[Rfam]
RNA sequence: AGCUUUCUGUGUCCGUGUCGAGAUUUUAUUGGUUACAAACUCACCAGUACUGACAAGACUCUAAAGAUAAGCAAACUG
Numbered sequence: 001a002g003c004u005u006u007c008u009g010u011g012u013c014c015g016u017g018u019c020g021a022g023a024u025u026u027u028a029u030u031g032g033u034u035a036c037a038a039a040c041u042c043a044c045c046a047g048u049a050c051u052g053a054c055a056a057g058a059c060u061c062u063a064a065a066g067a068u069a070a071g072c073a074a075a076c077u078g
Base pairs, nucleotide, nucleotide: 002077004075005074006073008071010069011068012067013066016063017062020061021060022059024058025057026056027055029053030052
mir-3492 microRNA precursor family: a 78-nucleotide RNA from Schistosoma haematobium. NCBI's taxonomy places the organism under Eukaryota, Opisthokonta, Trematoda, Digenea, Schistosoma.